[Rfam]
RNA: Eukaryotic small subunit ribosomal RNA, nucleotides 1810 to 1919
RNA sequence: GAAGGAAUCAGCGUGUGCGCAGAUAGCCCUCGGCCGAGAGGCCCGGGUAAUCCGCUGAAACUCCUUCGUGCUAGGGAUUGGGGCUUGAAAUUCUUCCCCAUGAACGAGGA
Numbered sequence: 001g002a003a004g005g006a007a008u009c010a011g012c013g014u015g016u017g018c019g020c021a022g023a024u025a026g027c028c029c030u031c032g033g034c035c036g037a038g039a040g041g042c043c044c045g046g047g048u049a050a051u052c053c054g055c056u057g058a059a060a061c062u063c064c065u066u067c068g069u070g071c072u073a074g075g076g077a078u079u080g081g082g083g084c085u086u087g088a089a090a091u092u093c094u095u096c097c098c099c100a101u102g103a104a105c106g107a108g109g110a
Stems, first nucleotide, its partner, number of pairs: 001067006015052001028047002032043004074105001079100005